[Rfam]
RNA sequence: AUACCUUUCUCGGCCUUUUGGCUAAGAUCAAGUGUAGUAUCUGUUCUUAUUAGUUUAAUAUCUGAUAUGUGGGCCAUUGGCCCACACGAUAUUAACUCUAUUUUUCUAAGGGGAAGGCCCAUCUAGGCAGCUUGUUGUCUUCGGCUUUUGCGCGUUGCCUUUGCGUUGCACUACUGCAUCGGCCUGGCGCACCCUAC
Numbered sequence: 001a002u003a004c005c006u007u008u009c010u011c012g013g014c015c016u017u018u019u020g021g022c023u024a025a026g027a028u029c030a031a032g033u034g035u036a037g038u039a040u041c042u043g044u045u046c047u048u049a050u051u052a053g054u055u056u057a058a059u060a061u062c063u064g065a066u067a068u069g070u071g072g073g074c075c076a077u078u079g080g081c082c083c084a085c086a087c088g089a090u091a092u093u094a095a096c097u098c099u100a101u102u103u104u105u106c107u108a109a110g111g112g113g114a115a116g117g118c119c120c121a122u123c124u125a126g127g128c129a130g131c132u133u134g135u136u137g138u139c140u141u142c143g144g145c146u147u148u149u150g151c152g153c154g155u156u157g158c159c160u161u162u163g164c165g166u167u168g169c170a171c172u173a174c175u176g177c178a179u180c181g182g183c184c185u186g187g188c189g190c191a192c193c194c195u196a197c
Stems, first nucleotide, its partner, number of pairs: 008027003012023004048067006069085007113149007127138004152190006159181001162178003

Shown here is a 197-nucleotide sequence from Cuscuta campestris, a member of the family "U2 spliceosomal RNA". About the family: U2 is a small nuclear RNA (snRNA) component of the spliceosome (involved in pre-mRNA splicing). Complementary binding between U2 snRNA (in an area lying towards the 5' end but 3' to hairpin I) and the branchpoint sequence (BPS) of the intron results the bulging out of an unpaired adenosine, on the BPS, which initiates a nucleophilic attack at the intronic 5' splice site, thus starting the first of two transesterification reactions that mediate splicing. It scores 154 bits against the family's covariance model. The literature on the family includes a 1997 paper in Nucleic Acids Res by Zwieb, "The uRNA database". Pairs were carried over by alignment from the consensus structure, which is taken from published work. Lineage of the source: Eukaryota > Streptophyta > Spermatophyta > Convolvulaceae > Cuscuta sect. Cleistogrammica.